[Rfam]
RNA: mir-551 microRNA precursor family
Organism: Lepisosteus oculatus
RNA sequence: AGACUCCCGAAGUCAAGCGUGGGUGGAGCCUGUGAGACAGCCGCCAGGCGACCCAUUCUUGGUUUCAGGGGUCA
Numbered sequence: 001a002g003a004c005u006c007c008c009g010a011a012g013u014c015a016a017g018c019g020u021g022g023g024u025g026g027a028g029c030c031u032g033u034g035a036g037a038c039a040g041c042c043g044c045c046a047g048g049c050g051a052c053c054c055a056u057u058c059u060u061g062g063u064u065u066c067a068g069g070g071g072u073c074a
Stems, first nucleotide, its partner, number of pairs: 002073006009066006016059002021054004028049004